RNA sequence: GCAUCCUGGAGAGUCCGGAGGGCAGCUCCCUCCGGCGCCGACGGGGUAACACUCUCAGGUCUGGACAGGACGC
Numbered sequence: 001g002c003a004u005c006c007u008g009g010a011g012a013g014u015c016c017g018g019a020g021g022g023c024a025g026c027u028c029c030c031u032c033c034g035g036c037g038c039c040g041a042c043g044g045g046g047u048a049a050c051a052c053u054c055u056c057a058g059g060u061c062u063g064g065a066c067a068g069g070a071c072g073c
Stems, first nucleotide, its partner, number of pairs: 001073002004070005015035007037060003040056002044054003
Dot-bracket structure: ((.(((((......(((((((.......))))))).(((((..(((.....))))).))).....))))).))

A member of the RNA family "Glycine riboswitch aptamer" from Rubrobacter radiotolerans, 73 nucleotides long. Taxonomically the source falls in Rubrobacter (Bacteria, Rubrobacteria, Rubrobacterales, Rubrobacteraceae).